[Rfam]
RNA: SmY spliceosomal RNA
RNA sequence: AUCUGAGUCUUCGCACUUUCAGGGCCUCACUUGAGACCCAGUGACCAGUUUUUGGAAACCUUCCAUGCUUGGAAGGUUA
Numbered sequence: 001a002u003c004u005g006a007g008u009c010u011u012c013g014c015a016c017u018u019u020c021a022g023g024g025c026c027u028c029a030c031u032u033g034a035g036a037c038c039c040a041g042u043g044a045c046c047a048g049u050u051u052u053u054g055g056a057a058a059c060c061u062u063c064c065a066u067g068c069u070u071g072g073a074a075g076g077u078u079a
Base pairs, nucleotide, nucleotide: 022039023038024037026035027034028033057078058077059076060075061074062073063072064071065070